A member of the RNA family "Y RNA" from Nomascus leucogenys, 113 nucleotides long.

RNA sequence: AGCUGGUGUGAAAGUAGUGCAUUAUUGAAAUUGAUUUUUCACAAUCAGUUAUUAAUCGAACUCCUUGUUCUACCCUUUCCCCUCCUGUCACUACUGCAAUGCACUAGUUUAAA
Numbered sequence: 001a002g003c004u005g006g007u008g009u010g011a012a013a014g015u016a017g018u019g020c021a022u023u024a025u026u027g028a029a030a031u032u033g034a035u036u037u038u039u040c041a042c043a044a045u046c047a048g049u050u051a052u053u054a055a056u057c058g059a060a061c062u063c064c065u066u067g068u069u070c071u072a073c074c075c076u077u078u079c080c081c082c083u084c085c086u087g088u089c090a091c092u093a094c095u096g097c098a099a100u101g102c103a104c105u106a107g108u109u110u111a112a113a
Stems, first nucleotide, its partner, number of pairs: 001109008011100001014097002016092004047071002
Dot-bracket structure: ((((((((..(..((((((...........................((.....................)).................))))...))..).))))))))....
Record summary
The source organism's lineage runs through Eukaryota, Opisthokonta, Gnathostomata, Hylobatidae and Nomascus. The match comes from Rfam's covariance-model search (42 bits). About the family: Y RNAs are components of the Ro ribonucleoprotein particle (Ro RNP), in association with Ro60 and La proteins. The Y RNAs and Ro60 and La proteins are well conserved, but the function of the Ro RNP is not known. In humans the RNA component can be one of four small RNAs -- hY1, hY3, hY4 and hY5. These small RNAs are predicted to fold into a conserved secondary structure containing three stem structures.